[Rfam]
RNA sequence: GGUUUUAACCCAGUUACUCAAGGUAAUUUGGAGUUCCGACCUUUCAAUAGAAAGUGUCGAAAACAUAAUUUUUGGACAGCUUCUUCGGGGUAUCCGUUGAGGCGAU
Numbered sequence: 001g002g003u004u005u006u007a008a009c010c011c012a013g014u015u016a017c018u019c020a021a022g023g024u025a026a027u028u029u030g031g032a033g034u035u036c037c038g039a040c041c042u043u044u045c046a047a048u049a050g051a052a053a054g055u056g057u058c059g060a061a062a063a064c065a066u067a068a069u070u071u072u073u074g075g076a077c078a079g080c081u082u083c084u085u086c087g088g089g090g091u092a093u094c095c096g097u098u099g100a101g102g103c104g105a106u
Stems, first nucleotide, its partner, number of pairs: 007035002009031002013027005037059004041054005081104001083102006089095002
Dot-bracket structure: ......((((..(((((.....)))))..))..)).(((((((((....))))).)))).....................(.((((((((...)).)))))).)..
SL2 RNA: a 106-nucleotide RNA sequence from Caenorhabditis bovis.
On this family, see Evans and Blumenthal, Mol Cell Biol 2000: "trans splicing of polycistronic Caenorhabditis elegans pre-mRNAs: analysis of the SL2 RNA".
The family is grouped with related families in Rfam's "SL clan".
This family represents SL2 RNA. SL2 RNA is involved in trans splicing in lower eukaryotes. Trans-splicing is a form of RNA processing. The acquisition of a spliced leader from a SL RNA is a intra-molecular reaction which precisely joins exons derived from separately transcribed RNAs.